[Rfam]
RNA sequence: GCUGCUGUCAUUUUUGUGAUUUGCAGCUUAUGUUUGUCAGUUGCAUAGUCACAAAAGUGAUCACCAGC
Numbered sequence: 001g002c003u004g005c006u007g008u009c010a011u012u013u014u015u016g017u018g019a020u021u022u023g024c025a026g027c028u029u030a031u032g033u034u035u036g037u038c039a040g041u042u043g044c045a046u047a048g049u050c051a052c053a054a055a056a057g058u059g060a061u062c063a064c065c066a067g068c
Base pairs, nucleotide, nucleotide: 002067003066004065006063007062008060009059010058011057012056013055014054015053016052017051018050019049020048022045023044024043025042026041027040028039